RNA: SAH (S-adenosyl-L-homocysteine) riboswitch aptamer
Organism: Oceanospirillum multiglobuliferum
RNA sequence: CCUGUUGAGGGGCGCUGCAACGGAGUUUUCUCCGCUACGCUCAACAAGAUGCCAACUUCAUUUGCAAGGGCGCCCAUUCUUC
Numbered sequence: 001c002c003u004g005u006u007g008a009g010g011g012g013c014g015c016u017g018c019a020a021c022g023g024a025g026u027u028u029u030c031u032c033c034g035c036u037a038c039g040c041u042c043a044a045c046a047a048g049a050u051g052c053c054a055a056c057u058u059c060a061u062u063u064g065c066a067a068g069g070g071c072g073c074c075c076a077u078u079c080u081u082c
Base pairs, nucleotide, nucleotide: 003046004045005044006043007042008041021034022033023032024031025030